[Rfam]
RNA sequence: AGCUUUGAGCAGUGGAGGUAUUGUAGCCAAUGAGGUUUAUCCGAGGCACGAUUAUUGCUAAUUGAAAACUUUUCCCAAGAAAUUAGCAAUUUUAAAGAAUCCUUCUAUGUCUAGAAAUUUAAAUUUCCCAACUGGUCCAUGUACC
Numbered sequence: 001a002g003c004u005u006u007g008a009g010c011a012g013u014g015g016a017g018g019u020a021u022u023g024u025a026g027c028c029a030a031u032g033a034g035g036u037u038u039a040u041c042c043g044a045g046g047c048a049c050g051a052u053u054a055u056u057g058c059u060a061a062u063u064g065a066a067a068a069c070u071u072u073u074c075c076c077a078a079g080a081a082a083u084u085a086g087c088a089a090u091u092u093u094a095a096a097g098a099a100u101c102c103u104u105c106u107a108u109g110u111c112u113a114g115a116a117a118u119u120u121a122a123a124u125u126u127c128c129c130a131a132c133u134g135g136u137c138c139a140u141g142u143a144c145c
Stems, first nucleotide, its partner, number of pairs: 020052005026047003034042002084121003090114002094110001096108001134145003
The family of this 145-nucleotide RNA sequence from Callithrix jacchus is "U4 spliceosomal RNA". Its Rfam clan is "U4 clan". U4 small nuclear RNA (U4 snRNA) is a component of the major U2-dependent spliceosome. Pairs were carried over by alignment from the consensus structure, which is taken from published work. The family's RNA type in Rfam is spliceosomal small nuclear RNA. The source organism's lineage runs through Eukaryota, Deuterostomia, Euarchontoglires, Primates and Callithrix. The family has 177 seed sequences and 32,178 matches in Rfam 15.1.